[Rfam]
RNA: U12 minor spliceosomal RNA
RNA sequence: UUGCCUUAAACUAAUGAGUAAGGAAAACAAAGCGCUGCGGUGAGAGCCGCUCGCGGUGCGGGGUCGAACCCUGCACAGCAAUUUUUGUAGGGGGAAGAGGCUGGCGCGGGCACUGACACUGCCCUACUUCGCAGGACUUGCCUGUGCGGGCCUCCCUA
Numbered sequence: 001u002u003g004c005c006u007u008a009a010a011c012u013a014a015u016g017a018g019u020a021a022g023g024a025a026a027a028c029a030a031a032g033c034g035c036u037g038c039g040g041u042g043a044g045a046g047c048c049g050c051u052c053g054c055g056g057u058g059c060g061g062g063g064u065c066g067a068a069c070c071c072u073g074c075a076c077a078g079c080a081a082u083u084u085u086u087g088u089a090g091g092g093g094g095a096a097g098a099g100g101c102u103g104g105c106g107c108g109g110g111c112a113c114u115g116a117c118a119c120u121g122c123c124c125u126a127c128u129u130c131g132c133a134g135g136a137c138u139u140g141c142c143u144g145u146g147c148g149g150g151c152c153u154c155c156c157u158a
Stems, first nucleotide, its partner, number of pairs: 004023005032054003037050004056076005091157004098153005104147001107144002110141003119134004